The family of this 592-nucleotide part of an RNA from Saccharomyces kudriavzevii is "Small nucleolar RNA snR86". Rfam's curators put it in the seed alignment. The family's RNA type in Rfam is H/ACA-box small nucleolar RNA. NCBI's taxonomy places the organism under Eukaryota, Opisthokonta, saccharomyceta, Saccharomycetaceae, Saccharomyces kudriavzevii. Rfam links the family to the GO terms RNA processing and nucleolus.

RNA sequence: AUAUCCAGAUGUAUGAUGCACCUUUUCAUUUUAACUUUGGGUAAUGUUUGUCUCACUAUUAACAUGUUCAUCUUUGCAAUGAUGGAAUAGAAAAAUUCAGGUGGCAUGAUCUGAAGGUACGAGUGAGCUCCGAUGGGGGGACGUGCUUAGAAGGGGCAAGGACGAGGGAAGAGAAAUGAAGGUUUCAAGGAGAUAUAAUAGAUAAAAUGGGAGCGGAUGGUUUCCGCUUGGCUGUAUAGCAUAAUUGAGUUUUUCAAUCAUGUCUAUGUUCAGGUUUAUGAUAUGCUGUGGCUGAUUCUGUUGAUUUCACACGUUUCACUUCCAUAUAAUGUGUUGAUGGAAACUCCACGUUAAGGCUUAUCAUAGGAAAUUAAUUGAACUCGUUCCCUUUUUUAUUUUUUAUUGUCUUUUCCUGAUACUUUCAUUUUUUCGACUUUUUAUGCUUAUCUUUCCUAAGCACAUCUUCACAUGAGCGCUCAUCCGUAUUUUCUAUUCACGUUAACAGAGUUUUUUUACGUUGUUGCAUGAUUGGGCAUGGGCGAGGCUUCAUUAUUCCAAACUUGGUGAAUUGUGGUGCAAUUCAUUGCUGGUC
Number, nucleotide and partner (000 for none) at each position: 001a000002u000003a000004u000005c000006c589007a588008g587009a000010u000011g584012u583013a000014u000015g580016a000017u578018g577019c576020a575021c574022c573023u000024u000025u568026u000027c566028a565029u564030u563031u000032u000033a000034a000035c000036u559037u558038u557039g556040g555041g554042u000043a000044a000045u000046g000047u000048u000049u000050g545051u544052c543053u542054c541055a000056c539057u538058a000059u000060u000061a000062a000063c537064a536065u535066g534067u533068u532069c531070a530071u000072c000073u000074u000075u525076g524077c523078a522079a521080u520081g519082a518083u517084g000085g000086a000087a000088u000089a000090g514091a513092a512093a511094a510095a509096u507097u506098c505099a000100g000101g000102u501103g500104g000105c498106a000107u496108g495109a494110u000111c000112u000113g489114a488115a487116g486117g000118u000119a000120c483121g482122a000123g480124u479125g478126a477127g476128c138129u137130c136131c135132g000133a000134u000135g131136g130137g129138g128139g464140g463141a462142c000143g460144u459145g458146c457147u456148u455149a454150g453151a000152a000153g000154g449155g448156g447157c000158a445159a444160g443161g000162a441163c000164g439165a438166g000167g000168g000169a000170a000171g000172a000173g428174a427175a426176a425177u000178g423179a422180a421181g420182g419183u000184u000185u000186c000187a000188a411189g410190g409191a408192g407193a000194u000195a403196u402197a401198a400199u000200a000201g396202a000203u000204a393205a000206a391207a390208u000209g388210g387211g386212a385213g384214c383215g382216g381217a000218u379219g000220g000221u370222u369223u368224c367225c366226g275227c274228u273229u272230g271231g270232c000233u000234g000235u268236a267237u266238a265239g264240c262241a261242u260243a000244a258245u257246u256247g255248a254249g253250u000251u000252u000253u249254u248255c247256a246257a245258u244259c000260a242261u241262g240263u000264c239265u238266a237267u236268g235269u000270u231271c230272a229273g228274g227275u226276u000277u365278a364279u363280g362281a361282u360283a359284u000285g357286c356287u355288g349289u348290g347291g346292c000293u000294g344295a000296u342297u341298c340299u339300g338301u337302u336303g335304a334305u000306u000307u000308c333309a332310c331311a330312c000313g000314u000315u000316u000317c000318a000319c000320u000321u000322c000323c000324a000325u000326a000327u000328a000329a000330u311331g310332u309333g308334u304335u303336g302337a301338u300339g299340g298341a297342a296343a000344c294345u000346c291347c290348a289349c288350g000351u000352u000353a000354a000355g287356g286357c285358u000359u283360a282361u281362c280363a279364u278365a277366g225367g224368a223369a222370a221371u000372u000373a000374a000375u000376u000377g000378a000379a218380c000381u216382c215383g214384u213385u212386c211387c210388c209389u000390u207391u206392u000393u204394u000395a000396u201397u000398u000399u000400u198401u197402a196403u195404u000405g000406u000407c192408u191409u190410u189411u188412c000413c000414u000415g000416a000417u000418a000419c182420u181421u180422u179423c178424a000425u176426u175427u174428u173429u000430u000431c000432g000433a000434c000435u000436u000437u000438u165439u164440a000441u162442g000443c160444u159445u158446a000447u156448c155449u154450u000451u000452c000453c150454u149455a148456a147457g146458c145459a144460c143461a000462u141463c140464u139465u000466c000467a000468c000469a000470u000471g000472a000473g000474c000475g000476c127477u126478c125479a124480u123481c000482c121483g120484u000485a000486u116487u115488u114489u113490c000491u000492a000493u000494u109495c108496a107497c000498g105499u000500u103501a102502a000503c000504a000505g098506a097507g096508u000509u095510u094511u093512u092513u091514u090515a000516c000517g083518u082519u081520g080521u079522u078523g077524c076525a075526u000527g000528a000529u000530u070531g069532g068533g067534c066535a065536u064537g063538g057539g056540c000541g054542a053543g052544g051545c050546u000547u000548c000549a000550u000551u000552a000553u000554u041555c040556c039557a038558a037559a036560c000561u000562u000563g030564g029565u028566g027567a000568a025569u000570u000571g000572u000573g022574g021575u020576g019577c018578a017579a000580u015581u000582c000583a012584u011585u000586g000587c008588u007589g006590g000591u000592c000